[Rfam]
RNA sequence: ACCUCGUAAGCCGAAAAGAGGAAAAUAGAGUAGGCA
Numbered sequence: 001a002c003c004u005c006g007u008a009a010g011c012c013g014a015a016a017a018g019a020g021g022a023a024a025a026u027a028g029a030g031u032a033g034g035c036a
Stems, first nucleotide, its partner, number of pairs: 002021004010035003